[Rfam]
RNA sequence: AAAGGGAUGCUCCGAAAACCUUGUAAUAGAGUAGGUA
Numbered sequence: 001a002a003a004g005g006g007a008u009g010c011u012c013c014g015a016a017a018a019c020c021u022u023g024u025a026a027u028a029g030a031g032u033a034g035g036u037a
Base pairs, nucleotide, nucleotide: 002022003021004020005019012035013034
RNA: DUF805b RNA
Organism: Roseivirga misakiensis